The record is a 63-nucleotide sequence from Albula goreensis, which matches "Selenocysteine insertion sequence 1" in Rfam. Pairs were carried over by alignment from the consensus structure, which is taken from published work.
RNA sequence: CUUGCUUUAAUGAGGACAGGCGCAGAAACUAGCGAUAGUGGUGCCUGUCUGAUGCUCUGCAAG
Number, nucleotide and partner (000 for none) at each position: 001c063002u062003u061004g060005c059006u000007u000008u000009a000010a000011u000012g000013a000014g000015g049016a048017c047018a046019g045020g044021c043022g042023c041024a000025g000026a000027a000028a000029c038030u037031a036032g000033c000034g000035a000036u031037a030038g029039u000040g000041g023042u022043g021044c020045c019046u018047g017048u016049c015050u000051g000052a000053u000054g000055c000056u000057c000058u000059g005060c004061a003062a002063g001

The family's RNA type in Rfam is cis-regulatory element. Taxonomically the source falls in Albula (Eukaryota, Chordata, Actinopteri, Elopomorpha). Its family is annotated with selenocysteine incorporation in the Gene Ontology.